[Rfam]
RNA sequence: UAGUAAAAUGAAAUAUUUACUCGUAUAUACUCGGUAAUAUGGUCUGAGUGUCUCUACCCGGUUCCCGUUAAAGAACUGGACUACGAUUUAAAGUGUAUGGAGA
Numbered sequence: 001u002a003g004u005a006a007a008a009u010g011a012a013a014u015a016u017u018u019a020c021u022c023g024u025a026u027a028u029a030c031u032c033g034g035u036a037a038u039a040u041g042g043u044c045u046g047a048g049u050g051u052c053u054c055u056a057c058c059c060g061g062u063u064c065c066c067g068u069u070a071a072a073g074a075a076c077u078g079g080a081c082u083a084c085g086a087u088u089u090a091a092a093g094u095g096u097a098u099g100g101a102g103a
Stems, first nucleotide, its partner, number of pairs: 019088001021086005029049006058079007

Source information:
A member of the RNA family "Purine riboswitch aptamer" from Bacillus sp. THAF10, 103 nucleotides long.